[Rfam]
Purine riboswitch aptamer: a 100-nucleotide sequence from Paenibacillus dendrobii. A search with the family's covariance model found it, with a score of 69 bits. Taxonomically the source falls in Paenibacillus (Bacteria, Bacillati, Bacilli, Caryophanales). The base pairs follow the family's consensus structure, which is taken from published work.
RNA sequence: AGUCAUAUAAAGAUCAUUGUUCGUAUAUCCUCAUUGAUAUGGUUUGAGGGUUUCUACAAGAGACCGUAAAUCUCUGGCUACGAAUAGGCUGCUUUUGGCA
Numbered sequence: 001a002g003u004c005a006u007a008u009a010a011a012g013a014u015c016a017u018u019g020u021u022c023g024u025a026u027a028u029c030c031u032c033a034u035u036g037a038u039a040u041g042g043u044u045u046g047a048g049g050g051u052u053u054c055u056a057c058a059a060g061a062g063a064c065c066g067u068a069a070a071u072c073u074c075u076g077g078c079u080a081c082g083a084a085u086a087g088g089c090u091g092c093u094u095u096u097g098g099c100a
Stems, first nucleotide, its partner, number of pairs: 018086008029049005059075005
From the family's description: Riboswitches are metabolite binding domains within certain messenger RNAs that serve as precision sensors for their corresponding targets. Allosteric rearrangement of mRNA structure is mediated by ligand binding, and this results in modulation of gene expression. A class of riboswitches that selectively recognises guanine and becomes saturated at concentrations as low as 5 nM. In Bacillus subtilis, this mRNA motif is located on at least five separate transcriptional units that together encode 17 genes that are mostly involved in purine transport and purine nucleotide biosynthesis. It has also been shown that some members of this family are specific for adenine instead. Hence this family are termed purine riboswitches.